[Rfam]
Background: This 92-nucleotide RNA sequence from Actinomadura rudentiformis belongs to the Rfam family "Glycine riboswitch aptamer". It scores 49 bits against the family's covariance model. Taxonomically the source falls in Actinomadura (Bacteria, Bacillati, Actinomycetes, Streptosporangiales). The base pairs follow the family's consensus structure. The family is grouped with related families in Rfam's "Glycine riboswitch clan".
Nucleotides: 092
Stems, first nucleotide, its partner, number of pairs: 004085006016032004034071003037067002041065001043063001047058002
Number, partner (000 for none) and nucleotide at each position: 001000c002000g003000a004085c005084c006083u007082c008081u009080g010000g011000a012000a013000a014000g015000c016032g017031g018030g019029g020000a021000c022000c023000a024000c025000g026000c027000g028000u029019c030018c031017c032016c033000c034071g035070c036069c037067g038066a039000a040000g041065g042000u043063g044000a045000a046000a047058g048057c049000c050000c051000c052000u053000c054000g055000g056000g057048g058047u059000g060000a061000a062000g063043c064000u065041c066038u067037c068000a069036g070035g071034c072000g073000c074000c075000g076000a077000u078000g079000a080009c081008a082007g083006a084005g085004g086000g087000g088000g089000a090000g091000g092000c